[Rfam]
RNA sequence: AACCUAACCUGAGUAGUCUCACGAGAGACGAAAGGCAUGGUUGAAAAAUCGCGUUAACAAUACUGAACCCGUCGUUCAGGUAUGUUAACGCGUUGCAUUGGGAAACCUCUGUAGGAUGUAAAAGUCC
Numbered sequence: 001a002a003c004c005u006a007a008c009c010u011g012a013g014u015a016g017u018c019u020c021a022c023g024a025g026a027g028a029c030g031a032a033a034g035g036c037a038u039g040g041u042u043g044a045a046a047a048a049u050c051g052c053g054u055u056a057a058c059a060a061u062a063c064u065g066a067a068c069c070c071g072u073c074g075u076u077c078a079g080g081u082a083u084g085u086u087a088a089c090g091c092g093u094u095g096c097a098u099u100g101g102g103a104a105a106c107c108u109c110u111g112u113a114g115g116a117u118g119u120a121a122a123a124g125u126c127c
Base pairs, nucleotide, nucleotide: 001042002041003040004039009035010034050092051091052090053089054088055087056086057085058084059083063079064078065077066076067075068074094113095112096111097110100107101106114127115126116125117124